This 181-nucleotide sequence from Thermophagus xiamenensis belongs to the Rfam family "Bacteroidales-1 6S-Bacteroidales RNA suggested". About the family: Bacteroidales-1 was first reported in a comparative genomics-based approach of genome and metagenome sequences from Weinberg et al. 2010 In a high-resolution transcriptome map study of Bacteroides thetaiotaomicron, Ryan et al. 2020 report this sRNA as 6S RNA homologue of Bacteroides, in the study they obtain evidence of small product RNAs (pRNAs) related to 6S function. Lineage of the source: Bacteria > Pseudomonadati > Bacteroidia > Marinilabiliaceae > Thermophagus. It is annotated as a small RNA.

[Rfam]
Nucleotides: 181
Stems, first nucleotide, its partner, number of pairs: 055127002059124008069114002076108004081090003092101003
Number, partner (000 for none) and nucleotide at each position: 001000u002000g003000c004000c005000g006000c007000a008000c009000c010000g011000g012000a013000u014000u015000u016000u017000u018000g019000a020000u021000u022000g023000u024000u025000a026000a027000a028000c029000u030000c031000a032000a033000c034000a035000c036000u037000a038000c039000a040000a041000a042000c043000a044000u045000a046000c047000c048000g049000a050000g051000u052000u053000a054000a055127a056126c057000u058000a059124u060123c061122c062121g063120u064119u065118a066117a067000a068000a069114g070113g071000g072000c073000a074000g075000g076108c077107c078106u079105c080000a081090a082089c083088c084000u085000u086000c087000g088083g089082g090081u091000u092101g093100u094099c095000u096000u097000c098000g099094g100093a101092c102000a103000c104000g105079g106078a107077g108076g109000a110000u111000c112000c113070c114069c115000g116000c117066u118065u119064a120063a121062c122061g123060g124059g125000u126056g127055u128000a129000c130000u131000c132000a133000a134000a135000u136000c137000c138000u139000g140000u141000c142000g143000u144000c145000a146000g147000g148000a149000g150000u151000u152000u153000a154000a155000a156000u157000a158000a159000u160000c161000c162000a163000a164000a165000c166000u167000g168000g169000u170000g171000c172000g173000g174000c175000a176000c177000c178000c179000u180000a181000u